Shown here is a 102-nucleotide RNA from Mandrillus leucophaeus, a member of the family "Y RNA".

[Rfam]
RNA sequence: GGCUGGGCCGAGUGCAGUGGUGUUUACAACUGGUUUGUAACUGGUUUACAACAAUUUCUUUGUUCCUUCUCCAUUCCCAUUGCUUCACUUGACUAGCCUAUG
Numbered sequence: 001g002g003c004u005g006g007g008c009c010g011a012g013u014g015c016a017g018u019g020g021u022g023u024u025u026a027c028a029a030c031u032g033g034u035u036u037g038u039a040a041c042u043g044g045u046u047u048a049c050a051a052c053a054a055u056u057u058c059u060u061u062g063u064u065c066c067u068u069c070u071c072c073a074u075u076c077c078c079a080u081u082g083c084u085u086c087a088c089u090u091g092a093c094u095a096g097c098c099u100a101u102g
Base pairs, nucleotide, nucleotide: 001098002097003096004095005094006093008091010090011089014086016081017080018079019078020077022076028064029063030062032060033059

The match comes from Rfam's covariance-model search (59 bits). The literature on the family includes a 2000 paper in Nucleic Acids Res by Teunissen et al., "Conserved features of Y RNAs: a comparison of experimentally derived secondary structures". The family's RNA type in Rfam is non-coding RNA gene.